Shown here is an 85-nucleotide RNA sequence from Bacteroidetes bacterium SCGC AAA795-G10, a member of the family "rpsL sRNA". NCBI's taxonomy places the organism under Bacteria, Pseudomonadati, Bacteroidota.

[Rfam]
RNA sequence: UUGGCCAUGUUUUUGGUUGGAAUGUAGUGACUUGAUCGCUAAACGCUGCCACAAAUAACCUGUCAGUUAUUUCAUCAAAAAUAAA
Numbered sequence: 001u002u003g004g005c006c007a008u009g010u011u012u013u014u015g016g017u018u019g020g021a022a023u024g025u026a027g028u029g030a031c032u033u034g035a036u037c038g039c040u041a042a043a044c045g046c047u048g049c050c051a052c053a054a055a056u057a058a059c060c061u062g063u064c065a066g067u068u069a070u071u072u073c074a075u076c077a078a079a080a081a082u083a084a085a
Base pairs, nucleotide, nucleotide: 011080012079013078014077015076016075019073020072021071022070023069024068025041026040027039028038029037030036045067046066047065048064
The base pairs follow the family's consensus structure, which is taken from published work. On this family, see Meyer et al., BMC Genomics 2009: "Identification of candidate structured RNAs in the marine organism 'Candidatus Pelagibacter ubique'".